Rfam assigns this 421-nucleotide sequence from Alistipes dispar to the family "Bacterial RNase P class A". By type it is a ribozyme. Rfam describes the family as follows. Ribonuclease P (RNase P) is a ubiquitous endoribonuclease, found in archaea, bacteria and eukarya as well as chloroplasts and mitochondria.
[Rfam]
RNA sequence: GCGCAGGUCCGCUCUGUCGCUGCCGGCCGCCGGCCGGGAGAGGAAAGUCCGGGCAACGCAGAGCGCCACGCAAGCUAAUGACUUGACAGCCGUGAGGUUGUGGGAGCGUAACAGAGAACGACCGCCCGCAGGCGGGCAUUCGCGGAACGGACGGAGCCUUCGGGGUUCCGGGCCGCGCUCCGGAGAGUGUCCGGCGGGUAAGGGUGAAAAGGCGGGGUAAGAGCCCACCGCGGGGGCAGCGAUGUCGCCCGGCAGUACGUCCCGUGGGUUGCAAGACCGUGUAUACCGGCAAUCAAGGGUUGCUCGCCCGAUGUCGGGGGGUAGGUUGCUUGAGACGGCGGGAGACCGCCGCCGUAGAUAAAUGACAGAGACCCGGGGUCCGCCCCGGGGACAGAACCCGGCUUACAGGACCUGCACGUAC
Numbered sequence: 001g002c003g004c005a006g007g008u009c010c011g012c013u014c015u016g017u018c019g020c021u022g023c024c025g026g027c028c029g030c031c032g033g034c035c036g037g038g039a040g041a042g043g044a045a046a047g048u049c050c051g052g053g054c055a056a057c058g059c060a061g062a063g064c065g066c067c068a069c070g071c072a073a074g075c076u077a078a079u080g081a082c083u084u085g086a087c088a089g090c091c092g093u094g095a096g097g098u099u100g101u102g103g104g105a106g107c108g109u110a111a112c113a114g115a116g117a118a119c120g121a122c123c124g125c126c127c128g129c130a131g132g133c134g135g136g137c138a139u140u141c142g143c144g145g146a147a148c149g150g151a152c153g154g155a156g157c158c159u160u161c162g163g164g165g166u167u168c169c170g171g172g173c174c175g176c177g178c179u180c181c182g183g184a185g186a187g188u189g190u191c192c193g194g195c196g197g198g199u200a201a202g203g204g205u206g207a208a209a210a211g212g213c214g215g216g217g218u219a220a221g222a223g224c225c226c227a228c229c230g231c232g233g234g235g236g237c238a239g240c241g242a243u244g245u246c247g248c249c250c251g252g253c254a255g256u257a258c259g260u261c262c263c264g265u266g267g268g269u270u271g272c273a274a275g276a277c278c279g280u281g282u283a284u285a286c287c288g289g290c291a292a293u294c295a296a297g298g299g300u301u302g303c304u305c306g307c308c309c310g311a312u313g314u315c316g317g318g319g320g321g322u323a324g325g326u327u328g329c330u331u332g333a334g335a336c337g338g339c340g341g342g343a344g345a346c347c348g349c350c351g352c353c354g355u356a357g358a359u360a361a362a363u364g365a366c367a368g369a370g371a372c373c374c375g376g377g378g379u380c381c382g383c384c385c386c387g388g389g390g391a392c393a394g395a396a397c398c399c400g401g402c403u404u405a406c407a408g409g410a411c412c413u414g415c416a417c418g419u420a421c
Stems, first nucleotide, its partner, number of pairs: 001417001003415008011406001012370007020040002023037006045404003049401005054271004061305004066267005071085004086101001088099004102262002106260005122203002124199006131192002211229002214226003230253001231251004236245003275327004286317005297309004334353001336351006

Clan: RNaseP clan. A search with the family's covariance model found it, with a score of 205 bits.